Record summary:
A member of the RNA family "sRNA-Xcc1" from Haematospirillum jordaniae, 103 nucleotides long. A search with the family's covariance model found it, with a score of 58 bits. It is annotated as a small RNA.

RNA sequence: GGCGGGAGGGCGGCGAAUAAAACACCCGCAAGGGAAAUAAGCCCACCUGAUAUCCCUGACGUUGGGCAGUGUUAUUGGGUUUUUGGCCUCCCGCCACCACGUG
Dot-bracket structure: (((((((((..(((.(........(((....)))...)..))).((((((((....................))))))))......)))))))))........